[Rfam]
RNA sequence: GAUUCCGGAUCCUCCGGAACCCACUACCCCGGUACCUGGUACGGCCGGGGAG
Numbered sequence: 001g002a003u004u005c006c007g008g009a010u011c012c013u014c015c016g017g018a019a020c021c022c023a024c025u026a027c028c029c030c031g032g033u034a035c036c037u038g039g040u041a042c043g044g045c046c047g048g049g050g051a052g
Stems, first nucleotide, its partner, number of pairs: 001021001003019007024052002027050007
Dot-bracket structure: (.(((((((...))))))).)..((.(((((((..........)))))))))